A member of the RNA family "SAM riboswitch aptamer (S box leader)" from Peribacillus psychrosaccharolyticus, 112 nucleotides long.

RNA sequence: UUCUUAUCCAGAGAGGUCGAGGGAAUGGCCCUAUGACACCUCAGCAACCAUCAAUGCAACCCAUUGAAAAGGUGCUAACUCCAGCAAGCUUGUUUAGCUUGGCAGAUAAGAA
Dot-bracket structure: ((((((((....(((((...(((..[[[)))......)))))((((.((.(((((.......)))))...))))))...(]]].((((((.....))))))..)))))))))
A search with the family's covariance model found it, with a score of 100 bits. Its family is annotated with regulation of gene expression in the Gene Ontology. NCBI's taxonomy places the organism under Bacteria, Bacillati, Bacillota, Bacilli, Peribacillus. The SAM riboswitch is found upstream of a number of genes which code for proteins involved in methionine or cysteine biosynthesis in Gram-positive bacteria. The SAM riboswitch acts at the level of transcription termination control.